[Rfam]
Bacterial small signal recognition particle RNA: a 98-nucleotide sequence from Snodgrassella alvi. Its family is annotated with SRP-dependent cotranslational protein targeting to membrane, signal sequence recognition and signal recognition particle, plasma membrane targeting in the Gene Ontology. About the family: The signal recognition particle (SRP) is a universally conserved ribonucleoprotein involved in the co-translational targeting of proteins to membranes. The match comes from Rfam's covariance-model search (63 bits).

RNA sequence: GGCGGGUCUCCUCGCAUGGUUAUUUAGGACAACGGGUCAGGUGCGGAAGCAAGCAGCCCAGCUUAAAGCGACCAGUGCCGGGGGUCUGGCUCGCCACC
Numbered sequence: 001g002g003c004g005g006g007u008c009u010c011c012u013c014g015c016a017u018g019g020u021u022a023u024u025u026a027g028g029a030c031a032a033c034g035g036g037u038c039a040g041g042u043g044c045g046g047a048a049g050c051a052a053g054c055a056g057c058c059c060a061g062c063u064u065a066a067a068g069c070g071a072c073c074a075g076u077g078c079c080g081g082g083g084g085u086c087u088g089g090c091u092c093g094c095c096a097c098c
Stems, first nucleotide, its partner, number of pairs: 004092005009084006015075001017074005023067006034059004042051003